[Rfam]
Nucleotides: 075
Stems, first nucleotide, its partner, number of pairs: 011064006019056003023052004028047003
Number, partner (000 for none) and nucleotide at each position: 001000g002000u003000u004000u005000u006000c007000u008000g009000u010000c011064c012063u013062u014061c015060a016059u017000u018000c019056c020055a021054c022000c023052g024051g025050a026049g027000u028047c029046u030045g031000u032000g033000c034000c035000u036000g037000u038000a039000u040000g041000g042000a043000a044000c045030c046029a047028g048000a049026u050025u051024u052023c053000a054021g055020u056019g057000g058000u059016g060015u061014g062013a063012a064011g065000u066000g067000u068000a069000a070000a071000a072000g073000a074000c075000a